[Rfam]
RNA sequence: AACCAAUGAUAUAAUGAUUCUGCUAAAUGAAAUGGAAUGGUAUCACUUGUAGAACCAGUCCAUUUUGGUUCUAAGGUU
Numbered sequence: 001a002a003c004c005a006a007u008g009a010u011a012u013a014a015u016g017a018u019u020c021u022g023c024u025a026a027a028u029g030a031a032a033u034g035g036a037a038u039g040g041u042a043u044c045a046c047u048u049g050u051a052g053a054a055c056c057a058g059u060c061c062a063u064u065u066u067g068g069u070u071c072u073a074a075g076g077u078u
Stems, first nucleotide, its partner, number of pairs: 001078004
A member of the RNA family "Small nucleolar RNA SNORD47" from Otolemur garnettii, 78 nucleotides long.
Pairs were carried over by alignment from the consensus structure, which was predicted with ILM.
A reference for the family is Galardi et al. (2002), "Purified box C/D snoRNPs are able to reproduce site-specific 2'-O-methylation of target RNA in vitro", Mol Cell Biol.
Rfam classes the family as a C/D-box small nucleolar RNA.